Rfam assigns this 192-nucleotide RNA from Paenibacillus selenitireducens to the family "Lysine riboswitch aptamer".
Pairs were carried over by alignment from the consensus structure, which is taken from published work.

RNA sequence: CGAUGAGGUAGAGGUCGCGGUUGUUAAGAGUAGGAAGUGGAGAGCCAGAGAAUUGCUCAUGGAAACUUACCGAAAGGAACCACCGCCGAAGCUCCACAGAUGCUCUGUCUGUGUGGGCUGGGGCUGUUGCUGAAUAAGCGCAGAACUGUCACGUGUAUGCGAACCGGCAUGGCGUGUUGUGCUAUCUUUUCU
Numbered sequence: 001c002g003a004u005g006a007g008g009u010a011g012a013g014g015u016c017g018c019g020g021u022u023g024u025u026a027a028g029a030g031u032a033g034g035a036a037g038u039g040g041a042g043a044g045c046c047a048g049a050g051a052a053u054u055g056c057u058c059a060u061g062g063a064a065a066c067u068u069a070c071c072g073a074a075a076g077g078a079a080c081c082a083c084c085g086c087c088g089a090a091g092c093u094c095c096a097c098a099g100a101u102g103c104u105c106u107g108u109c110u111g112u113g114u115g116g117g118c119u120g121g122g123g124c125u126g127u128u129g130c131u132g133a134a135u136a137a138g139c140g141c142a143g144a145a146c147u148g149u150c151a152c153g154u155g156u157a158u159g160c161g162a163a164c165c166g167g168c169a170u171g172g173c174g175u176g177u178u179g180u181g182c183u184a185u186c187u188u189u190u191c192u
Stems, first nucleotide, its partner, number of pairs: 006187006017086005023080003033071002035068004090119005095113006120147002124143003128140004150176005